[Rfam]
RNA sequence: GGUUUUAACCCAGUUUAACCAAGGUUAGCUGUCGUUUCGAUCUCUCGAGAGAGUGUGUCGAAUAAAAAAUAAUUUUUGGAAUCGCUUCAUCGGGGAAUCCGUUGAAGCAAA
Numbered sequence: 001g002g003u004u005u006u007a008a009c010c011c012a013g014u015u016u017a018a019c020c021a022a023g024g025u026u027a028g029c030u031g032u033c034g035u036u037u038c039g040a041u042c043u044c045u046c047g048a049g050a051g052a053g054u055g056u057g058u059c060g061a062a063u064a065a066a067a068a069a070u071a072a073u074u075u076u077u078g079g080a081a082u083c084g085c086u087u088c089a090u091c092g093g094g095g096a097a098u099c100c101g102u103u104g105a106a107g108c109a110a111a
Stems, first nucleotide, its partner, number of pairs: 007036002010031001013029002017026003038060004042055001044053003086109001088107001090105004094100002

The record is a 111-nucleotide RNA from Caenorhabditis elegans, which matches "SL2 RNA" in Rfam. Its family is annotated with mRNA trans splicing, via spliceosome in the Gene Ontology. The family is grouped with related families in Rfam's "SL clan". A reference for the family is Dassanayake et al. (2001), "Trans-spliced leader RNA, 5S-rRNA genes and novel variant orphan spliced-leader of the lymphatic filarial nematode Wuchereria bancrofti, and a sensitive polymerase chain reaction based detection assay", Gene. The family has 30 seed sequences and 598 matches in Rfam 15.1.